Source information
L31-Actinobacteria ribosomal protein leader: a 47-nucleotide RNA from Streptomyces liangshanensis. A search with the family's covariance model found it, with a score of 50 bits. Lineage of the source: Bacteria > Actinomycetota > Actinomycetes > Kitasatosporales > Streptomyces.
[Rfam]
Nucleotides: 047
Stems, first nucleotide, its partner, number of pairs: 003047003007043004015037006022030002
Number, partner (000 for none) and nucleotide at each position: 001000u002000c003047g004046g005045c006000c007043c008042c009041g010040g011000u012000u013000c014000a015037c016036g017035u018034a019033c020032g021000a022030g023029c024000a025000c026000u027000c028000a029023g030022c031000a032020c033019g034018u035017g036016c037015g038000a039000c040010c041009c042008g043007g044000a045005g046004c047003c